[Rfam]
RNA sequence: UGGACAGAUUACUGUAUUCGAGUGUAUUCACGGCAUGAAACAGGGGAUUACACUGUUUUUAAAUGGAAAGUGUAUCUGUCACACUCCU
Numbered sequence: 001u002g003g004a005c006a007g008a009u010u011a012c013u014g015u016a017u018u019c020g021a022g023u024g025u026a027u028u029c030a031c032g033g034c035a036u037g038a039a040a041c042a043g044g045g046g047a048u049u050a051c052a053c054u055g056u057u058u059u060u061a062a063a064u065g066g067a068a069a070g071u072g073u074a075u076c077u078g079u080c081a082c083a084c085u086c087c088u
Stems, first nucleotide, its partner, number of pairs: 002087003015083001018081001020080002024076001026075002029072003034065003037059007

Shown here is an 88-nucleotide RNA from Nicotiana attenuata, a member of the family "MIR6152 microRNA precursor family". Rfam links the family to the GO terms RISC complex and miRNA-mediated post-transcriptional gene silencing. Taxonomically the source falls in Nicotiana (Eukaryota, Tracheophyta, lamiids, Solanales).